[Rfam]
RNA sequence: ACAAAUAAGUAAAAUAUUCCAUAGACAGUAGGUGCAAAAGCAUAACAGUUAAUCUAACCUACCGAGGAUUCCAAUAUAAGAAAGUAAUUGGUCUCUCUUUGUCUAUGAGGAGACCUUUAAUUUUUAUAUA
Number, nucleotide and partner (000 for none) at each position: 001a000002c000003a000004a000005a000006u000007a000008a000009g000010u000011a000012a000013a000014a000015u000016a000017u000018u000019c000020c000021a000022u000023a000024g000025a000026c000027a000028g062029u061030a060031g059032g058033u057034g041035c040036a000037a000038a000039a000040g035041c034042a000043u000044a000045a000046c000047a000048g000049u000050u000051a000052a000053u000054c000055u000056a000057a033058c032059c031060u030061a029062c028063c000064g000065a000066g000067g000068a000069u000070u000071c000072c000073a000074a000075u000076a000077u000078a000079a000080g000081a000082a000083a000084g000085u000086a000087a000088u000089u000090g115091g114092u113093c112094u111095c110096u109097c000098u107099u000100u000101g000102u000103c000104u000105a000106u000107g098108a000109g096110g095111a094112g093113a092114c091115c090116u000117u000118u000119a000120a000121u000122u000123u000124u000125u000126a000127u000128a000129u000130a000

Ribosomal protein L10 leader: a 130-nucleotide RNA sequence from Clostridium tyrobutyricum. NCBI's taxonomy places the organism under Bacteria, Clostridia, Clostridiaceae, Clostridium, Clostridium tyrobutyricum. Rfam describes the family as follows. This family is a putative r-protein leader autoregulatory structure found in B. subtilis and other low-GC Gram-positive bacteria. It is located in the 5' untranslated regions of mRNAs encoding ribosomal proteins L10 and L12 (rplJ-rplL). A Rho-independent transcription terminator structure that is probably involved in regulation is included at the 3' end. Pairs were carried over by alignment from the consensus structure, which was predicted with CMfinder.